[Rfam]
RNA sequence: AGGCAAUCGCUUUAACGCCACACACGCAUCGGCACCGCCUUCGGGGUGCCCUACCUGUCGUCGUCGCGAAAGGCGUCGCGUCCAGGUCGGGUCGAAGCCGGGGAUGCGUGGAGGUCCCAAC
Numbered sequence: 001a002g003g004c005a006a007u008c009g010c011u012u013u014a015a016c017g018c019c020a021c022a023c024a025c026g027c028a029u030c031g032g033c034a035c036c037g038c039c040u041u042c043g044g045g046g047u048g049c050c051c052u053a054c055c056u057g058u059c060g061u062c063g064u065c066g067c068g069a070a071a072g073g074c075g076u077c078g079c080g081u082c083c084a085g086g087u088c089g090g091g092u093c094g095a096a097g098c099c100g101g102g103g104a105u106g107c108g109u110g111g112a113g114g115u116c117c118c119a120a121c
Base pairs, nucleotide, nucleotide: 023110024109025108026107027106028105029104030103035101036100037099039097040096041095042094043093048092049091050090051089
The family of this 121-nucleotide RNA from Luteibacter sp. UNCMF366Tsu5.1 is "t44 RNA". Rfam describes the family as follows. This family consists of a number of bacterial RNA genes of between 135 and 170 bases in length. The t44 gene has been identified in several species of enteric bacteria but homologs have also been identified in Pseudomonas and Coxiella species. The t44 gene is found between the map and rpsB genes in all species in the full alignment apart from Shigella flexneri. The function of this RNA is unknown. A search with the family's covariance model found it, with a score of 63 bits. The literature on the family includes a 2002 paper in Nucleic Acids Res by Tjaden et al., "Transcriptome analysis of Escherichia coli using high-density oligonucleotide probe arrays".